[Rfam]
RNA sequence: CGACUACAAAAUAACUUAUUAUGUAGCACUUCGAGUUACGAUAAUUACUAUGUUAAUUUACGAGAUUAUAAUAACUCCUUACUACUAUAAUGUUAUGGUAAAUAUCCUCAUGUGUUAUAGUAACCCAACUAUCGUAAAUAUUAUUUAUUGAUAUUAUCGUAAAUUAGUAUAUAAAAUUAUCGUAAAUAGAUGUGACUACAAAAUAACUUAUUUUGUAGCCG
Numbered sequence: 001c002g003a004c005u006a007c008a009a010a011a012u013a014a015c016u017u018a019u020u021a022u023g024u025a026g027c028a029c030u031u032c033g034a035g036u037u038a039c040g041a042u043a044a045u046u047a048c049u050a051u052g053u054u055a056a057u058u059u060a061c062g063a064g065a066u067u068a069u070a071a072u073a074a075c076u077c078c079u080u081a082c083u084a085c086u087a088u089a090a091u092g093u094u095a096u097g098g099u100a101a102a103u104a105u106c107c108u109c110a111u112g113u114g115u116u117a118u119a120g121u122a123a124c125c126c127a128a129c130u131a132u133c134g135u136a137a138a139u140a141u142u143a144u145u146u147a148u149u150g151a152u153a154u155u156a157u158c159g160u161a162a163a164u165u166a167g168u169a170u171a172u173a174a175a176a177u178u179a180u181c182g183u184a185a186a187u188a189g190a191u192g193u194g195a196c197u198a199c200a201a202a203a204u205a206a207c208u209u210a211u212u213u214u215g216u217a218g219c220c221g
Stems, first nucleotide, its partner, number of pairs: 001221002004218011016206005022200005027194003031190002036185011049171013064158003068154003071148003079137004083122011097107002
MIR6217 microRNA precursor family: a 221-nucleotide sequence from Miscanthus lutarioriparius.
The family has 2 seed sequences and 2,266 matches in Rfam 15.1.